[Rfam]
This 136-nucleotide RNA sequence from Haloechinothrix alba belongs to the Rfam family "SAM riboswitch aptamer (S box leader)". The source organism's lineage runs through Bacteria, Bacillati, Actinomycetota, Actinomycetes and Haloechinothrix. Rfam links the family to the GO term regulation of gene expression.
RNA sequence: CGCUCAUCCAGAGGGGCAGAGGGACCGGCCCGAUGAAGCCCCGGCAACCGGCGUUGGCCAGUCAUCUCGAUCAGCGAGGUAGCCAGCGCACUCGGUGCCAAUUCCGGCCCAUGACUCACCGUGGGGCAGAUGAGGA
Numbered sequence: 001c002g003c004u005c006a007u008c009c010a011g012a013g014g015g016g017c018a019g020a021g022g023g024a025c026c027g028g029c030c031c032g033a034u035g036a037a038g039c040c041c042c043g044g045c046a047a048c049c050g051g052c053g054u055u056g057g058c059c060a061g062u063c064a065u066c067u068c069g070a071u072c073a074g075c076g077a078g079g080u081a082g083c084c085a086g087c088g089c090a091c092u093c094g095g096u097g098c099c100a101a102u103u104c105c106g107g108c109c110c111a112u113g114a115c116u117c118a119c120c121g122u123g124g125g126g127c128a129g130a131u132g133a134g135g136a
Stems, first nucleotide, its partner, number of pairs: 003134006013042005021031003025107004043099004048095002050091001103128001108125006